Shown here is a 52-nucleotide sequence, a member of the family "serC leader". This family is a putative regulatory RNA structure that is found upstream of the serC-serA operon in some alpha-proteobacteria. The final stem of the structure overlaps the ribosome binding site of the serC reading frame. Rfam classes the family as a cis-regulatory leader. Pairs were carried over by alignment from the consensus structure. Rfam links the family to the GO term regulation of gene expression. On this family, see Corbino et al., Genome Biol 2005: "Evidence for a second class of S-adenosylmethionine riboswitches and other regulatory RNA motifs in alpha-proteobacteria".
RNA sequence: CGGUGGGACACCUCUCCCCAACGAGAGGCAACUAUCUGAAAGGAUAGCUAAU
Dot-bracket structure: ..........((((((......))))))...((((((....)))))).....
Numbered sequence: 001c002g003g004u005g006g007g008a009c010a011c012c013u014c015u016c017c018c019c020a021a022c023g024a025g026a027g028g029c030a031a032c033u034a035u036c037u038g039a040a041a042g043g044a045u046a047g048c049u050a051a052u
Stems, first nucleotide, its partner, number of pairs: 011028006032047006